[Rfam]
RNA sequence: CAUCCCUGUGACGAAUGCUAUGCAAUUAAAAGUAGUGGACUGACUCGUAUUGAUGAAAAAAAAGACUCCGAGGGAUG
Numbered sequence: 001c002a003u004c005c006c007u008g009u010g011a012c013g014a015a016u017g018c019u020a021u022g023c024a025a026u027u028a029a030a031a032g033u034a035g036u037g038g039a040c041u042g043a044c045u046c047g048u049a050u051u052g053a054u055g056a057a058a059a060a061a062a063a064g065a066c067u068c069c070g071a072g073g074g075a076u077g
Stems, first nucleotide, its partner, number of pairs: 001077006
Record summary
Shown here is a 77-nucleotide sequence from Cephalotus follicularis, a member of the family "Small nucleolar RNA R21". Gene Ontology terms of the family: RNA processing and nucleolus. Taxonomically the source falls in Cephalotus (Eukaryota, Streptophyta, Euphyllophyta, Spermatophyta). The literature on the family includes a 2001 paper in J Mol Biol by Barneche et al., "Identification of 66 box C/D snoRNAs in Arabidopsis thaliana: extensive gene duplications generated multiple isoforms predicting new ribosomal RNA 2'-O-methylation sites".